A member of the RNA family "Group II catalytic intron D1-D4-2" from Fulvivirga imtechensis, 113 nucleotides long. On this family, see Lehmann and Schmidt, Crit Rev Biochem Mol Biol 2003: "Group II introns: structure and catalytic versatility of large natural ribozymes".
[Rfam]
RNA sequence: UGUGGCCCACCGAAGGCAAUCUACAGGGAUAGCCUUCAAACCACUCUACGGUGCUGUCCUGGUAACGGGGUGGUAUUGAGCGGAUAGAGAAAAGGUUCUUUAAUGAAUCAGGU
Numbered sequence: 001u002g003u004g005g006c007c008c009a010c011c012g013a014a015g016g017c018a019a020u021c022u023a024c025a026g027g028g029a030u031a032g033c034c035u036u037c038a039a040a041c042c043a044c045u046c047u048a049c050g051g052u053g054c055u056g057u058c059c060u061g062g063u064a065a066c067g068g069g070g071u072g073g074u075a076u077u078g079a080g081c082g083g084a085u086a087g088a089g090a091a092a093a094g095g096u097u098c099u100u101u102a103a104u105g106a107a108u109c110a111g112g113u
Base pairs, nucleotide, nucleotide: 012037013036014035015034016033017032019030020029021028022027042112044089045088046087047086048085049083050077051076053074054073055072057070058069059068060067094109095108096107097106098105
Rfam 15.1 lists 1,231 matches to the family in 625 species. It scores 76 bits against the family's covariance model.